[Rfam]
RNA sequence: UCGCAGGAGCCUCCGGGCUAGUCUGAAAAUAAUAAUUUGAGGAAUUAAGCCCCAAAGCUUCUGCUAGAUUGAUGCCAUUCGUGUUGCAGUUCUGUCUCAAAUCCUAUCUGGCUUAACUGUGUCAAAGCAAUGUCUAGAUUU
Numbered sequence: 001u002c003g004c005a006g007g008a009g010c011c012u013c014c015g016g017g018c019u020a021g022u023c024u025g026a027a028a029a030u031a032a033u034a035a036u037u038u039g040a041g042g043a044a045u046u047a048a049g050c051c052c053c054a055a056a057g058c059u060u061c062u063g064c065u066a067g068a069u070u071g072a073u074g075c076c077a078u079u080c081g082u083g084u085u086g087c088a089g090u091u092c093u094g095u096c097u098c099a100a101a102u103c104c105u106a107u108c109u110g111g112c113u114u115a116a117c118u119g120u121g122u123c124a125a126a127g128c129a130a131u132g133u134c135u136a137g138a139u140u141u
Stems, first nucleotide, its partner, number of pairs: 003064008015052005020046002022043003074134001076132004082124002085121006094112003
RNA: small nucleolar RNA snoR134